[Rfam]
RNA sequence: AAAUUAGUUAAAGCGCCAGAACUUAAGUGAGAUUCCAAAUCUUUGAUUUGGUUGAUCGAACUUACUCAGCGAAAGUAGAGAGUCGAGUUUCCUUUUUGGAAAUGGUAUAACGUAUCUAUGAUUUUGCAAGGUUCACUUAAGUUGACGAGGAUGGGGAGUAUCGAAUCCUUCGGCGGAUGCCCCACGGUAUUGCACUACCGUAAACGGCUGACAAAACUAUAAAGUGAUUUAUAGUACAAACUCAGCUUGGUGUUAAAA
Numbered sequence: 001a002a003a004u005u006a007g008u009u010a011a012a013g014c015g016c017c018a019g020a021a022c023u024u025a026a027g028u029g030a031g032a033u034u035c036c037a038a039a040u041c042u043u044u045g046a047u048u049u050g051g052u053u054g055a056u057c058g059a060a061c062u063u064a065c066u067c068a069g070c071g072a073a074a075g076u077a078g079a080g081a082g083u084c085g086a087g088u089u090u091c092c093u094u095u096u097u098g099g100a101a102a103u104g105g106u107a108u109a110a111c112g113u114a115u116c117u118a119u120g121a122u123u124u125u126g127c128a129a130g131g132u133u134c135a136c137u138u139a140a141g142u143u144g145a146c147g148a149g150g151a152u153g154g155g156g157a158g159u160a161u162c163g164a165a166u167c168c169u170u171c172g173g174c175g176g177a178u179g180c181c182c183c184a185c186g187g188u189a190u191u192g193c194a195c196u197a198c199c200g201u202a203a204a205c206g207g208c209u210g211a212c213a214a215a216a217c218u219a220u221a222a223a224g225u226g227a228u229u230u231a232u233a234g235u236a237c238a239a240a241c242u243c244a245g246c247u248u249g250g251u252g253u254u255a256a257a258a
Stems, first nucleotide, its partner, number of pairs: 020143008029134003152184005161173004185200005206247005217234007
The family of this 258-nucleotide RNA sequence from Clostridium vincentii is "glmS glucosamine-6-phosphate activated ribozyme aptamer". Rfam describes the family as follows. This entry contains a glucosamine-6-phosphate activated ribozyme that is found in the mRNA for GlmS. GlmS is an enzyme that uses fructose-6-phosphate and glutamine to generate glucosamine-6-phosphate.